Rfam assigns this 159-nucleotide sequence to the family "RT-2 RNA".
RNA sequence: GAGAUAAUUAUCUCGAAUAUGAUUCAUGAUGCUUUUGUUUGGACGCUGUUUGCAUGGUUUAUCAUUUGUUUAUUUGGGUAAAUUUCAUAGACAAAACUUUGUAACAAUUAAAAUAAACGAUAUUGGUUAUACAUGAAUCUUUGGAACUACAAGUGUAGU
Numbered sequence: 001g002a003g004a005u006a007a008u009u010a011u012c013u014c015g016a017a018u019a020u021g022a023u024u025c026a027u028g029a030u031g032c033u034u035u036u037g038u039u040u041g042g043a044c045g046c047u048g049u050u051u052g053c054a055u056g057g058u059u060u061a062u063c064a065u066u067u068g069u070u071u072a073u074u075u076g077g078g079u080a081a082a083u084u085u086c087a088u089a090g091a092c093a094a095a096a097c098u099u100u101g102u103a104a105c106a107a108u109u110a111a112a113a114u115a116a117a118c119g120a121u122a123u124u125g126g127u128u129a130u131a132c133a134u135g136a137a138u139c140u141u142u143g144g145a146a147c148u149a150c151a152a153g154u155g156u157a158g159u
Base pairs, nucleotide, nucleotide: 001014002013003012004011021139022138023137024136025135026134027133028132030131031097033095034094036093037092038091039090040089045053046052056084057083058082059081060080061079062078101130102129103128104127105126108119